A member of the RNA family "Bacterial small subunit ribosomal RNA" from Lactobacillus xujianguonis, 588 nucleotides of a longer RNA. It scores 1606 bits against the family's covariance model. The family has 99 seed sequences and 42,628 matches in Rfam 15.1.
RNA sequence: AAAAAUGAGAGUUUGAUCCUGGCUCAGGACGAACGCUGGCGGCGUGCCUAAUACAUGCAAGUCGAGCGAGCAGAACUAACAGAUUUACUUCGGUAAUGACGUUUCGGACGCGAGCGGCGGAUGGGUGAGUAACACGUGGGUAACCUGCCCUUAAGUCUGGGAUACCACUUGGAAACAGGUGCUAAUACCGGAUAACAACUAGUGCUGCAUGGCACUAGCUUAAAAGGCGGCGUAAGCUGUCGCUAAAGGAUGGACCCGCGGUGCAUUAGCUAGUUGGUAAGGUAACGGCUUACCAAGGCGACGAUGCAUAGCCGAGUUGAGAGACUGAUCGGCCACAUUGGGACUGAGACACGGCCCAAACUCCUACGGGAGGCAGCAGUAGGGAAUCUUCCACAAUGGGCGAAAGCCUGAUGGAGCAACGCCGCGUGAGUGAAGAAGGUUUUCGGAUCGUAAAGCUCUGUUGUUGGUGAAGAAGGAUAGAGGUAGUAACUGGCCUUUAUUUGACGGUAAUCAACCAGAAAGUCACGGCUAACUACGUGCCAGCAGCCGCGGUAAUACGUAGGUGGCAAGCGUUGUCCGGAUUUAUUG
Numbered sequence: 001a002a003a004a005a006u007g008a009g010a011g012u013u014u015g016a017u018c019c020u021g022g023c024u025c026a027g028g029a030c031g032a033a034c035g036c037u038g039g040c041g042g043c044g045u046g047c048c049u050a051a052u053a054c055a056u057g058c059a060a061g062u063c064g065a066g067c068g069a070g071c072a073g074a075a076c077u078a079a080c081a082g083a084u085u086u087a088c089u090u091c092g093g094u095a096a097u098g099a100c101g102u103u104u105c106g107g108a109c110g111c112g113a114g115c116g117g118c119g120g121a122u123g124g125g126u127g128a129g130u131a132a133c134a135c136g137u138g139g140g141u142a143a144c145c146u147g148c149c150c151u152u153a154a155g156u157c158u159g160g161g162a163u164a165c166c167a168c169u170u171g172g173a174a175a176c177a178g179g180u181g182c183u184a185a186u187a188c189c190g191g192a193u194a195a196c197a198a199c200u201a202g203u204g205c206u207g208c209a210u211g212g213c214a215c216u217a218g219c220u221u222a223a224a225a226g227g228c229g230g231c232g233u234a235a236g237c238u239g240u241c242g243c244u245a246a247a248g249g250a251u252g253g254a255c256c257c258g259c260g261g262u263g264c265a266u267u268a269g270c271u272a273g274u275u276g277g278u279a280a281g282g283u284a285a286c287g288g289c290u291u292a293c294c295a296a297g298g299c300g301a302c303g304a305u306g307c308a309u310a311g312c313c314g315a316g317u318u319g320a321g322a323g324a325c326u327g328a329u330c331g332g333c334c335a336c337a338u339u340g341g342g343a344c345u346g347a348g349a350c351a352c353g354g355c356c357c358a359a360a361c362u363c364c365u366a367c368g369g370g371a372g373g374c375a376g377c378a379g380u381a382g383g384g385a386a387u388c389u390u391c392c393a394c395a396a397u398g399g400g401c402g403a404a405a406g407c408c409u410g411a412u413g414g415a416g417c418a419a420c421g422c423c424g425c426g427u428g429a430g431u432g433a434a435g436a437a438g439g440u441u442u443u444c445g446g447a448u449c450g451u452a453a454a455g456c457u458c459u460g461u462u463g464u465u466g467g468u469g470a471a472g473a474a475g476g477a478u479a480g481a482g483g484u485a486g487u488a489a490c491u492g493g494c495c496u497u498u499a500u501u502u503g504a505c506g507g508u509a510a511u512c513a514a515c516c517a518g519a520a521a522g523u524c525a526c527g528g529c530u531a532a533c534u535a536c537g538u539g540c541c542a543g544c545a546g547c548c549g550c551g552g553u554a555a556u557a558c559g560u561a562g563g564u565g566g567c568a569a570g571c572g573u574u575g576u577c578c579g580g581a582u583u584u585a586u587u588g
Stems, first nucleotide, its partner, number of pairs: 009025005027578004032574006039425006045418002047383001052381003056378003061118003066115002070111002125336003135260007144253002149249004154244002157191004166181006197221002199218008226241005262308003269299003274296008311333004315326004338359005361372004389415001391414003397410005428458004438449004462519001463515006472505001478499006522567005533562005543550002